[Rfam]
RNA sequence: CUUGCUCUAUAUGAUGAGAAUAUUUUAAAACAGUUAUCCCUGGCUGAAAUUUCAUAUGAUCGAAUUUAGUUUUUCUGAAAGCAAG
Numbered sequence: 001c002u003u004g005c006u007c008u009a010u011a012u013g014a015u016g017a018g019a020a021u022a023u024u025u026u027a028a029a030a031c032a033g034u035u036a037u038c039c040c041u042g043g044c045u046g047a048a049a050u051u052u053c054a055u056a057u058g059a060u061c062g063a064a065u066u067u068a069g070u071u072u073u074u075c076u077g078a079a080a081g082c083a084a085g
Stems, first nucleotide, its partner, number of pairs: 001085006
This 85-nucleotide sequence from Rhizophagus irregularis belongs to the Rfam family "Small nucleolar RNA R38". The source organism's lineage runs through Eukaryota, Opisthokonta, Glomerales, Glomeraceae and Rhizophagus irregularis. By type it is a C/D-box small nucleolar RNA. A search with the family's covariance model found it, with a score of 51 bits. snoR38 is a C/D box small nucleolar RNA conserved across yeast, human, Arabidopsis and rice.